Notes: The family of this 48-nucleotide RNA is "ssnA RNA". By type it is a cis-regulatory element.

RNA sequence: UAUACGUCGGCUGCAAGGAAGUGCCUCGCGCACGGGUCGGACACUCUC
Number, nucleotide and partner (000 for none) at each position: 001u000002a000003u000004a000005c000006g000007u000008c039009g038010g037011c036012u035013g000014c000015a000016a000017g000018g000019a000020a000021g033022u032023g031024c030025c000026u000027c000028g000029c000030g024031c023032a022033c021034g000035g012036g011037u010038c009039g008040g000041a000042c000043a000044c000045u000046c000047u000048c000